[Rfam]
RNA sequence: CUGCAGCCAAUUAAGCCUAUCCUGCUCCUUUCCUCAUGGGGGCCCGGUGUGCAAUGGCUGCAAACCACAGCGUCCUUGGUGGUGUAUGCAGCCUGCUGCUUGUAUGGGUUGCUCUAAGGGACCUUGGAGACAGUC
Numbered sequence: 001c002u003g004c005a006g007c008c009a010a011u012u013a014a015g016c017c018u019a020u021c022c023u024g025c026u027c028c029u030u031u032c033c034u035c036a037u038g039g040g041g042g043c044c045c046g047g048u049g050u051g052c053a054a055u056g057g058c059u060g061c062a063a064a065c066c067a068c069a070g071c072g073u074c075c076u077u078g079g080u081g082g083u084g085u086a087u088g089c090a091g092c093c094u095g096c097u098g099c100u101u102g103u104a105u106g107g108g109u110u111g112c113u114c115u116a117a118g119g120g121a122c123c124u125u126g127g128a129g130a131c132a133g134u135c
Base pairs, nucleotide, nucleotide: 002053003052004051005050019048020047021046025042026041027040028039078123079122080121089111090110091109092108093107094106
This 135-nucleotide RNA from Propithecus coquereli belongs to the Rfam family "Small nucleolar RNA SNORA70".
The family's RNA type in Rfam is H/ACA-box small nucleolar RNA.
A search with the family's covariance model found it, with a score of 143 bits.
Rfam links the family to the GO terms nucleolus and RNA processing.
The family's consensus secondary structure was predicted with PFOLD.
Rfam describes the family as follows. snoRNA U70 seems to be exclusive to mammals and is a member of the H/ACA class of snoRNA which contain H (ANANNA) and ACA box motifs. H/ACA box snoRNAs are involved in the conversion of uridines to pseudouridines (5-ribosyluracil) a constituent of structural RNAs (transfer, ribosomal, small nuclear, and small nucleolar).